Record summary: The family of this 86-nucleotide RNA sequence from Oryzias javanicus is "mir-181 microRNA precursor family". Taxonomically the source falls in Oryzias (Eukaryota, Teleostei, Ovalentaria, Oryziinae). Its family is annotated with RISC complex and miRNA-mediated post-transcriptional gene silencing in the Gene Ontology. The match comes from Rfam's covariance-model search (70 bits).
[Rfam]
RNA sequence: CUGCCUCGGCGAACAUUCAACGCUGUCGGUGAGUUUGGUACGCACGAGCGAAAAACCAUCGACCGUUGACUGUGCCCCGCGGCUGG
Numbered sequence: 001c002u003g004c005c006u007c008g009g010c011g012a013a014c015a016u017u018c019a020a021c022g023c024u025g026u027c028g029g030u031g032a033g034u035u036u037g038g039u040a041c042g043c044a045c046g047a048g049c050g051a052a053a054a055a056c057c058a059u060c061g062a063c064c065g066u067u068g069a070c071u072g073u074g075c076c077c078c079g080c081g082g083c084u085g086g
Stems, first nucleotide, its partner, number of pairs: 001086003004082002007079002014072002017069006025063007033056004